The family of this 142-nucleotide sequence from Fukomys damarensis is "small Cajal body-specific RNA 17". The organism belongs to Fukomys, within Eukaryota. Gene Ontology terms of the family: RNA processing, Cajal body and nucleolus. Rfam describes the family as follows. scaRNAs are a specific class of small nuclear RNAs which localise to the Cajal bodies and guide the modification of RNA polymerase II transcribed spliceosomal RNAs U1, U2, U4, U5 and U12. The complete human U12-22/U4-8 scaRNA is composed of two tandem C/D box domains (termed U12-22 and U4-8). The base pairs follow the family's consensus structure, which is taken from published work. It is annotated as a small Cajal body RNA. The literature on the family includes a 2002 paper in EMBO J by Darzacq et al., "Cajal body-specific small nuclear RNAs: a novel class of 2'-O-methylation and pseudouridylation guide RNAs".
[Rfam]
RNA sequence: CUCCAGUGUCCCCCGUGCAGCCCCCAGUGAGCCCGCGGUAUUUUCCUUAUAUGAUCAGGCCCCAUUGUGGGCGGCGUUGCUUGCCUGGAGCCUGAGAGGAUUAUGAAACGUGUCAGGCUACGUGGGGCCAGGGGACCUGGUG
Numbered sequence: 001c002u003c004c005a006g007u008g009u010c011c012c013c014c015g016u017g018c019a020g021c022c023c024c025c026a027g028u029g030a031g032c033c034c035g036c037g038g039u040a041u042u043u044u045c046c047u048u049a050u051a052u053g054a055u056c057a058g059g060c061c062c063c064a065u066u067g068u069g070g071g072c073g074g075c076g077u078u079g080c081u082u083g084c085c086u087g088g089a090g091c092c093u094g095a096g097a098g099g100a101u102u103a104u105g106a107a108a109c110g111u112g113u114c115a116g117g118c119u120a121c122g123u124g125g126g127g128c129c130a131g132g133g134g135a136c137c138u139g140g141u142g
Stems, first nucleotide, its partner, number of pairs: 001142001003140001006138001008136006020128005055095006062088002067084007